[Rfam]
RNA sequence: UAAGAGAAAGAUGGAAAAGCAGGGAAAAGGCUGAGCACGGAUGGCUCUAACCGACAGCUUUAUGUUGUUUCUCCGCCCAUGCACUGCCUCUUCCCUGGCUUUGCCACCUCCAUUUUCU
Numbered sequence: 001u002a003a004g005a006g007a008a009a010g011a012u013g014g015a016a017a018a019g020c021a022g023g024g025a026a027a028a029g030g031c032u033g034a035g036c037a038c039g040g041a042u043g044g045c046u047c048u049a050a051c052c053g054a055c056a057g058c059u060u061u062a063u064g065u066u067g068u069u070u071c072u073c074c075g076c077c078c079a080u081g082c083a084c085u086g087c088c089u090c091u092u093c094c095c096u097g098g099c100u101u102u103g104c105c106a107c108c109u110c111c112a113u114u115u116u117c118u
Stems, first nucleotide, its partner, number of pairs: 017101003020097007028089004033084001035082003039078002044073001
RNA: MIR408 microRNA precursor family
Organism: Hibiscus trionum